Record summary: The family of this 117-nucleotide RNA sequence from Metabacillus harenarius is "PyrR binding site". The family's consensus secondary structure is taken from published work.
RNA sequence: AACCCUUUUAAAGAUAGUCCAGAGAGGCUACAAAGGGGAGCAUGAAGAAUCAAGCCAUCCAUAUGGCUUGGUAUCCUUCUUGAACCUCUUUGUCCUCAUGCAAAGAGGUUUUUUAUU
Dot-bracket structure: ..((((((......(((((......))))).)))))).........(.((((((((((....)))))))))).).......((((((((((((......))))))))))))......